[Rfam]
The family of this 181-nucleotide RNA sequence from Paracidovorax valerianellae is "Manganese Mn2+ riboswitch aptamer (yybP-ykoY)".
Gene Ontology term of the family: manganese ion binding.
The source organism's lineage runs through Bacteria, Pseudomonadota, Betaproteobacteria, Comamonadaceae and Paracidovorax.
This RNA was originally discovered in E. coli during a large scale screen and was named SraF. The family was later found to exist upstream of related families of protein genes in many bacteria, including the the yybP and ykoK genes in B. subtilis.
RNA sequence: CGCCCCGUCUUUGGGGAGUAGCCCGCCCGGCGCACAGACCGCACGGGGGCAUGCAUCAACAAACUCGGGCCCUCGCGGCCUGUGGUGCAUGCGGUUCAUUCGAACUGGGCGAGACCAUUGACUGCGCACCGAUCCAAAAGGCCGGAGUCGGGGUGCAGUCAAUGCUCUGCACCUGUCCGGC
Numbered sequence: 001c002g003c004c005c006c007g008u009c010u011u012u013g014g015g016g017a018g019u020a021g022c023c024c025g026c027c028c029g030g031c032g033c034a035c036a037g038a039c040c041g042c043a044c045g046g047g048g049g050c051a052u053g054c055a056u057c058a059a060c061a062a063a064c065u066c067g068g069g070c071c072c073u074c075g076c077g078g079c080c081u082g083u084g085g086u087g088c089a090u091g092c093g094g095u096u097c098a099u100u101c102g103a104a105c106u107g108g109g110c111g112a113g114a115c116c117a118u119u120g121a122c123u124g125c126g127c128a129c130c131g132a133u134c135c136a137a138a139a140g141g142c143c144g145g146a147g148u149c150g151g152g153g154u155g156c157a158g159u160c161a162a163u164g165c166u167c168u169g170c171a172c173c174u175g176u177c178c179g180g181c
Stems, first nucleotide, its partner, number of pairs: 026047003049092010066082005099180001